[Rfam]
RNA sequence: CCUAGCUCUCACGAGCCAGGCUGAACUAUAACGUACCUUCGGUACU
Numbered sequence: 001c002c003u004a005g006c007u008c009u010c011a012c013g014a015g016c017c018a019g020g021c022u023g024a025a026c027u028a029u030a031a032c033g034u035a036c037c038u039u040c041g042g043u044a045c046u
Stems, first nucleotide, its partner, number of pairs: 001020003005016004033045005

Overview: A member of the RNA family "Acido-Lenti-1 RNA" from Lentisphaera araneosa, 46 nucleotides long. Pairs were carried over by alignment from the consensus structure, which is taken from published work. It is annotated as a small RNA. Rfam's curators put it in the seed alignment.